Record summary
glmS glucosamine-6-phosphate activated ribozyme aptamer: a 173-nucleotide RNA from Compostibacillus humi.

RNA sequence: UUAUUUUAAAAAGCGCCAGGACUAUUUUCCUGUCGUAAGGGGAAAAUAGUUGACGAGGUGGAGGUUGAUCGAAGGAUUCGGCGGAUGCCUCCCGAUUGUACAUCUCAAUCGUUACGUUUUAUUCAUAAAACAAUAAGGCAACUUAUUGCACAAAGGAAUAAAACAAGAUGUAG
Number, nucleotide and partner (000 for none) at each position: 001u000002u000003a000004u000005u000006u000007u000008a000009a000010a000011a000012a000013g000014c000015g000016c000017c000018a000019g000020g051021a050022c049023u048024a047025u046026u045027u044028u000029c042030c000031u000032g000033u000034c000035g000036u000037a000038a000039g000040g000041g000042g029043a000044a027045a026046a025047u024048a023049g022050u021051u020052g000053a000054c000055g000056a000057g000058g000059u000060g092061g091062a090063g089064g088065u000066u000067g000068a000069u081070c080071g079072a078073a000074g000075g000076a000077u000078u072079c071080g070081g069082c000083g000084g000085a000086u000087g000088c064089c063090u062091c061092c060093c111094g110095a109096u108097u107098g106099u000100a000101c000102a000103u000104c000105u000106c098107a097108a096109u095110c094111g093112u000113u000114a000115c000116g000117u163118u162119u161120u160121a159122u158123u157124c000125a000126u000127a000128a000129a000130a000131c148132a147133a146134u145135a144136a143137g142138g000139c000140a000141a000142c137143u136144u135145a134146u133147u132148g131149c000150a000151c000152a000153a000154a000155g000156g000157a123158a122159u121160a120161a119162a118163a117164c000165a000166a000167g000168a000169u000170g000171u000172a000173g000

The base pairs follow the family's consensus structure, which is taken from published work. Rfam links the family to the GO terms regulation of gene expression and catalytic activity. Lineage of the source: Bacteria > Bacillota > Bacilli > Caryophanales > Compostibacillus.